mir-15 microRNA precursor family: an 83-nucleotide RNA from Chiloscyllium punctatum. Rfam's curators write: This family represents the related mir-15a and mir-15b sequences. A reference for the family is Lagos-Quintana et al. (2001), "Identification of novel genes coding for small expressed RNAs", Science.

[Rfam]
Nucleotides: 083
Stems, first nucleotide, its partner, number of pairs: 001083006014070001016068008026058010
Number, partner (000 for none) and nucleotide at each position: 001083u002082c003081c004080u005079g006078u007000a008000g009000u010000g011000a012000a013000c014070u015000a016068g017067c018066a019065g020064c021063a022062c023061a024000u025000a026058a027057u028056g029055g030054u031053u032052u033051g034050u035049g036000a037000g038000u039000u040000g041000u042000a043000c044000g045000g046000a047000g048000a049035u050034g051033c052032a053031g054030g055029c056028c057027a058026u059000a060000u061023u062022g063021u064020g065019c066018u067017g068016c069000c070014a071000c072000a073000u074000g075000a076000a077000g078006a079005c080004a081003g082002g083001a